[Rfam]
RNA sequence: CCAGACGGCCGGAUGGCCGCUGUCGGCGCGUGAGCGUCGGCAGAGGAAAGUCCGGGCUCCACGGAAAUACGGUGCCGGGUAACGCCCGGCGGGGGCGACCCCAGGGAAAGUGCCACAGAAAGCAAACCGCCCGGCCGUCUUCGGAUCGCCGGGCAAGGGUGAAAGGGUGCGGUAAGAGCGCACCGCGCGCCUGGCAACAGGGGCGGCAUGGCAAACCCCACCGGGAGCAAAACCGAAUAGGGGCGGCCGGCGGCGGGAGCGAUCCCGGCCGCGGGUGCAUUUCCGCACCGUCGCCCGGGUUGGUUGCAGGAGGCGGUCGGCGACGAUCGUCCCAGAUGAAUGGCCAUCCCCUGCUUGCAGGGACAGAACCCGGCUUACAGGCCGUCUGGUCCG
Numbered sequence: 001c002c003a004g005a006c007g008g009c010c011g012g013a014u015g016g017c018c019g020c021u022g023u024c025g026g027c028g029c030g031u032g033a034g035c036g037u038c039g040g041c042a043g044a045g046g047a048a049a050g051u052c053c054g055g056g057c058u059c060c061a062c063g064g065a066a067a068u069a070c071g072g073u074g075c076c077g078g079g080u081a082a083c084g085c086c087c088g089g090c091g092g093g094g095g096c097g098a099c100c101c102c103a104g105g106g107a108a109a110g111u112g113c114c115a116c117a118g119a120a121a122g123c124a125a126a127c128c129g130c131c132c133g134g135c136c137g138u139c140u141u142c143g144g145a146u147c148g149c150c151g152g153g154c155a156a157g158g159g160u161g162a163a164a165g166g167g168u169g170c171g172g173u174a175a176g177a178g179c180g181c182a183c184c185g186c187g188c189g190c191c192u193g194g195c196a197a198c199a200g201g202g203g204c205g206g207c208a209u210g211g212c213a214a215a216c217c218c219c220a221c222c223g224g225g226a227g228c229a230a231a232a233c234c235g236a237a238u239a240g241g242g243g244c245g246g247c248c249g250g251c252g253g254c255g256g257g258a259g260c261g262a263u264c265c266c267g268g269c270c271g272c273g274g275g276u277g278c279a280u281u282u283c284c285g286c287a288c289c290g291u292c293g294c295c296c297g298g299g300u301u302g303g304u305u306g307c308a309g310g311a312g313g314c315g316g317u318c319g320g321c322g323a324c325g326a327u328c329g330u331c332c333c334a335g336a337u338g339a340a341u342g343g344c345c346a347u348c349c350c351c352u353g354c355u356u357g358c359a360g361g362g363a364c365a366g367a368a369c370c371c372g373g374c375u376u377a378c379a380g381g382c383c384g385u386c387u388g389g390u391c392c393g
Stems, first nucleotide, its partner, number of pairs: 001389010011378001012348007020043009048376003052373005057227004066282002070223005075089005090104001091102004105218002110216002112212003127158002129154007137146003166184006185207001186205003190201004231305004241296006274289005312331008
RNA: Bacterial RNase P class A